[Rfam]
RNA sequence: AUAAGGGUGACCGAGUGUGGGAAGGAAGCGUGGAGCGAAGCUGCGAGCCGAUGAACAAGAAUCGGAUAGAAGGCGCUGCCGAGCAGGGCGAGCGGGCAAUGGACCGCGAAGCUCUCGUGAUCAAGGCGGAGCGGCGUAGAUCCGGCGGUUGUGCAGCGAAGGAGUGCGUAC
Numbered sequence: 001a002u003a004a005g006g007g008u009g010a011c012c013g014a015g016u017g018u019g020g021g022a023a024g025g026a027a028g029c030g031u032g033g034a035g036c037g038a039a040g041c042u043g044c045g046a047g048c049c050g051a052u053g054a055a056c057a058a059g060a061a062u063c064g065g066a067u068a069g070a071a072g073g074c075g076c077u078g079c080c081g082a083g084c085a086g087g088g089c090g091a092g093c094g095g096g097c098a099a100u101g102g103a104c105c106g107c108g109a110a111g112c113u114c115u116c117g118u119g120a121u122c123a124a125g126g127c128g129g130a131g132c133g134g135c136g137u138a139g140a141u142c143c144g145g146c147g148g149u150u151g152u153g154c155a156g157c158g159a160a161g162g163a164g165u166g167c168g169u170a171c
Base pairs, nucleotide, nucleotide: 001016002015005012006011028171030169031168032167036162040157041156042155043154044153045152046150047149048148049147050146062145063144064143065142066141067140073137074136075135077133078132079131083127086114087113088112089111092107093106094105095104

Group II catalytic intron D1-D4-3: a 171-nucleotide RNA sequence from Candidatus Accumulibacter sp. SK-11. The organism belongs to Candidatus Accumulibacter, within Bacteria. Rfam 15.1 lists 4,274 matches to the family in 1,585 species.